The record is a 97-nucleotide RNA from Lachnospiraceae bacterium C7, which matches "Purine riboswitch aptamer" in Rfam. Riboswitches are metabolite binding domains within certain messenger RNAs that serve as precision sensors for their corresponding targets. A search with the family's covariance model found it, with a score of 53 bits. Taxonomically the source falls in Lachnospiraceae (Bacteria, Bacillati, Bacillota, Lachnospirales).

RNA sequence: AUGUGCUAUAUUGAAGUGGGUUAUAUAAGCCUGUAAUGGGGUCAGGCGUUUCUACAACUACCGUAAAUAGUUCACUAUAACUCAUAAUAAGAAGGAG
Numbered sequence: 001a002u003g004u005g006c007u008a009u010a011u012u013g014a015a016g017u018g019g020g021u022u023a024u025a026u027a028a029g030c031c032u033g034u035a036a037u038g039g040g041g042u043c044a045g046g047c048g049u050u051u052c053u054a055c056a057a058c059u060a061c062c063g064u065a066a067a068u069a070g071u072u073c074a075c076u077a078u079a080a081c082u083c084a085u086a087a088u089a090a091g092a093a094g095g096a097g
Stems, first nucleotide, its partner, number of pairs: 018083008029047005056072005